[Rfam]
RNA: Bacterial RNase P class A
Organism: [Eubacterium] brachy
RNA sequence: UGGGUAAGCCAGACAAUCGCAUUUUUAAUGAGGAAAGUCCGGGCUCCGCAGGGCGAGGAUGCCAGAUAACGUCUGGCGUAGGUAACUAUAGGGAAAGUGCAACAGAAACAUACCGCCGAAACGAGUAAUGUCGUGGUAAGGUUGAAAUGGCGAGGUAAGAGCUCACCGGCAUUGCGGAGACGCAAUGGCCGUGUAAACCCCAUCCGGAGCAAGACCAAGAGAAGCAUUAAAAGACGGCUGCCCGUCGUCGCUUAAGUGGUAGGUUGCUAGAGCAUGUUGGCGACGGCAUGCCCAGAUAGAUGAUUGUCUAAUACAGAACCCGGCUUAUAGACUUACCCAAAAA
Numbered sequence: 001u002g003g004g005u006a007a008g009c010c011a012g013a014c015a016a017u018c019g020c021a022u023u024u025u026u027a028a029u030g031a032g033g034a035a036a037g038u039c040c041g042g043g044c045u046c047c048g049c050a051g052g053g054c055g056a057g058g059a060u061g062c063c064a065g066a067u068a069a070c071g072u073c074u075g076g077c078g079u080a081g082g083u084a085a086c087u088a089u090a091g092g093g094a095a096a097g098u099g100c101a102a103c104a105g106a107a108a109c110a111u112a113c114c115g116c117c118g119a120a121a122c123g124a125g126u127a128a129u130g131u132c133g134u135g136g137u138a139a140g141g142u143u144g145a146a147a148u149g150g151c152g153a154g155g156u157a158a159g160a161g162c163u164c165a166c167c168g169g170c171a172u173u174g175c176g177g178a179g180a181c182g183c184a185a186u187g188g189c190c191g192u193g194u195a196a197a198c199c200c201c202a203u204c205c206g207g208a209g210c211a212a213g214a215c216c217a218a219g220a221g222a223a224g225c226a227u228u229a230a231a232a233g234a235c236g237g238c239u240g241c242c243c244g245u246c247g248u249c250g251c252u253u254a255a256g257u258g259g260u261a262g263g264u265u266g267c268u269a270g271a272g273c274a275u276g277u278u279g280g281c282g283a284c285g286g287c288a289u290g291c292c293c294a295g296a297u298a299g300a301u302g303a304u305u306g307u308c309u310a311a312u313a314c315a316g317a318a319c320c321c322g323g324c325u326u327a328u329a330g331a332c333u334u335a336c337c338c339a340a341a342a343a
Stems, first nucleotide, its partner, number of pairs: 001339008010330001011328001012308007020030004035326003039323005044209004052243002057205005062076005077091001078089004092200002097198002099194003113141002115137003121131003149167002152164003169189001170187007213265004222253004234248005272291008